[Rfam]
RNA sequence: AUGAAGAUAGUGGGAGAGAGAUCAUAUGAUCCGCCGAAGGAGUUACACUUUCAGGCAAAAGGACCAUUAUCGGACG
Numbered sequence: 001a002u003g004a005a006g007a008u009a010g011u012g013g014g015a016g017a018g019a020g021a022u023c024a025u026a027u028g029a030u031c032c033g034c035c036g037a038a039g040g041a042g043u044u045a046c047a048c049u050u051u052c053a054g055g056c057a058a059a060a061g062g063a064c065c066a067u068u069a070u071c072g073g074a075c076g
Stems, first nucleotide, its partner, number of pairs: 006071008020031004033056003036052002040050003
RNA: Glycine riboswitch aptamer